[Rfam]
RNA: Makes More Granules Regulator RNA (mmgR)
RNA sequence: UCGUGCAGCCCUUGAUGGGCGUUUCCUCCCUACACUUCGGGCCGCCCCUCGGGCGGCCCUUUUUCUUGACGGCC
Dot-bracket structure: .......((((.....))))..................(((((((((...)))))))))...............